[Rfam]
RNA sequence: CGAAGAGUAGGGAUGCAAGCGUCAAGUGCCGACGGGACGGGGAGUUGCCGGUCGGACGAAAGGCUGUUUUUUGCACGGUGUGUGGAAAGCGGUGCUGCGGUUUGUACCCCGCAUCCCGCUUCC
Numbered sequence: 001c002g003a004a005g006a007g008u009a010g011g012g013a014u015g016c017a018a019g020c021g022u023c024a025a026g027u028g029c030c031g032a033c034g035g036g037a038c039g040g041g042g043a044g045u046u047g048c049c050g051g052u053c054g055g056a057c058g059a060a061a062g063g064c065u066g067u068u069u070u071u072u073g074c075a076c077g078g079u080g081u082g083u084g085g086a087a088a089g090c091g092g093u094g095c096u097g098c099g100g101u102u103u104g105u106a107c108c109c110c111g112c113a114u115c116c117c118g119c120u121u122c123c
Base pairs, nucleotide, nucleotide: 002122003121004120005119010110011109012108014106015105016104017103018102019101020099021098022097026057027056029055030054031053032052033051035049036048040116041115042114044112061096062095
RNA: THF (Tetrahydrofolate) riboswitch aptamer